The record is a 92-nucleotide RNA sequence from Danionella cerebrum, which matches "Small nucleolar RNA SNORD116" in Rfam. Rfam classes the family as a C/D-box small nucleolar RNA. It scores 38 bits against the family's covariance model. Rfam links the family to the GO terms nucleolus and RNA processing.

[Rfam]
RNA sequence: AAUAAAUUGUUUACUCCAUAGCAUUCGCUCCUUGGGCCAGACUCCAAAAUGAGUGAAAAAUCUAUUCAAUCUUUUUACCUAAACAAAUUGUU
Numbered sequence: 001a002a003u004a005a006a007u008u009g010u011u012u013a014c015u016c017c018a019u020a021g022c023a024u025u026c027g028c029u030c031c032u033u034g035g036g037c038c039a040g041a042c043u044c045c046a047a048a049a050u051g052a053g054u055g056a057a058a059a060a061u062c063u064a065u066u067c068a069a070u071c072u073u074u075u076u077a078c079c080u081a082a083a084c085a086a087a088u089u090g091u092u
Base pairs, nucleotide, nucleotide: 001092002091003090004089005088026055027054028053029052030051032047033046034045035044036043